[Rfam]
RNA sequence: UCUGACGGCAUCCGCCGCCGGACAAACAUAUACCACGAUACGGAAAGCCGGACGCUACUUGCAUGGGCGCAGGGCGCGCGUUCCCCGCGUUUUCAUGGCUACGCCGUUACGCAUUUUAGACAGCGCGACAAGAAAGAAAUGUACGAGGUAUCAUUUUCCCAUGAACAGCAC
Dot-bracket structure: ((((..............)))).......(((((.((.(((((..((((....((.....))..((((((................))))))....))))...))))...(((((.(...................))))))))).)))))....................
Numbered sequence: 001u002c003u004g005a006c007g008g009c010a011u012c013c014g015c016c017g018c019c020g021g022a023c024a025a026a027c028a029u030a031u032a033c034c035a036c037g038a039u040a041c042g043g044a045a046a047g048c049c050g051g052a053c054g055c056u057a058c059u060u061g062c063a064u065g066g067g068c069g070c071a072g073g074g075c076g077c078g079c080g081u082u083c084c085c086c087g088c089g090u091u092u093u094c095a096u097g098g099c100u101a102c103g104c105c106g107u108u109a110c111g112c113a114u115u116u117u118a119g120a121c122a123g124c125g126c127g128a129c130a131a132g133a134a135a136g137a138a139a140u141g142u143a144c145g146a147g148g149u150a151u152c153a154u155u156u157u158c159c160c161a162u163g164a165a166c167a168g169c170a171c
Stems, first nucleotide, its partner, number of pairs: 001022004030151005036145002039143001040107004046100004054062002065092006111142005117137001
Description
Shown here is a 171-nucleotide sequence, a member of the family "RT-2 RNA". Rfam's curators put it in the seed alignment.